[Rfam]
Nucleotides: 074
Base pairs, nucleotide, nucleotide: 001065002064003063004062
Number, partner (000 for none) and nucleotide at each position: 001065g002064a003063g004062a005000a006000a007000u008000g009000a010000g011000g012000a013000u014000a015000a016000a017000u018000a019000c020000u021000u022000u023000g024000u025000c026000u027000g028000a029000c030000u031000u032000c033000u034000g035000g036000a037000g038000u039000g040000a041000a042000g043000a044000c045000u046000u047000c048000a049000g050000a051000u052000c053000c054000a055000a056000c057000u058000c059000u060000g061000a062004u063003c064002u065001c066000a067000c068000a069000c070000u071000g072000a073000c074000a